[Rfam]
RNA sequence: GAAUCCCACCAACCCACUCAUGUACGGCAGGAGCGGGGGACCCAGGUAAGCCGCCGGACCGCACCGCGGACCGGCUUGGGGUGAAGUCUCGUGUACGCCGCGUGACCGGGCAUCUCCUGCCCGAACCCGACAGCUCACCUCGCAGGCGAUGGAGAGGAACG
Numbered sequence: 001g002a003a004u005c006c007c008a009c010c011a012a013c014c015c016a017c018u019c020a021u022g023u024a025c026g027g028c029a030g031g032a033g034c035g036g037g038g039g040a041c042c043c044a045g046g047u048a049a050g051c052c053g054c055c056g057g058a059c060c061g062c063a064c065c066g067c068g069g070a071c072c073g074g075c076u077u078g079g080g081g082u083g084a085a086g087u088c089u090c091g092u093g094u095a096c097g098c099c100g101c102g103u104g105a106c107c108g109g110g111c112a113u114c115u116c117c118u119g120c121c122c123g124a125a126c127c128c129g130a131c132a133g134c135u136c137a138c139c140u141c142g143c144a145g146g147c148g149a150u151g152g153a154g155a156g157g158a159a160c161g
Base pairs, nucleotide, nucleotide: 004032005031006030033143034142035141036140037139038138043078044077045076046075047074079128080127081126087105088104090102108122109121110120111119
RNA: c-di-AMP riboswitch aptamer (ydaO/yuaA leader)